[Rfam]
RNA sequence: CAAGGCCUGUGAUGAUCUAAAUAUUUGCCUACAUUGUCUGAUUGCUCUAGUUGAAGAGUCUUUUUAAACCAAGUCUGAGGCUUUG
Number, nucleotide and partner (000 for none) at each position: 001c085002a084003a000004g082005g081006c080007c079008u000009g000010u000011g000012a000013u000014g000015a000016u000017c000018u000019a000020a000021a000022u000023a000024u000025u000026u000027g000028c000029c000030u000031a000032c000033a000034u000035u000036g000037u000038c000039u000040g000041a000042u000043u000044g000045c000046u000047c000048u000049a000050g000051u000052u000053g000054a000055a000056g000057a000058g000059u000060c000061u000062u000063u000064u000065u000066a000067a000068a000069c000070c000071a000072a000073g000074u000075c000076u000077g000078a000079g007080g006081c005082u004083u000084u002085g001
Background:
The record is an 85-nucleotide RNA from Salvia splendens, which matches "Small nucleolar RNA SNORD34" in Rfam. Its Rfam clan is "SNORD34 clan". NCBI's taxonomy places the organism under Eukaryota, Gunneridae, Lamiaceae, Mentheae, core Calosphace. Rfam links the family to the GO terms nucleolus and RNA processing. Rfam 15.1 lists 1,319 matches to the family in 583 species.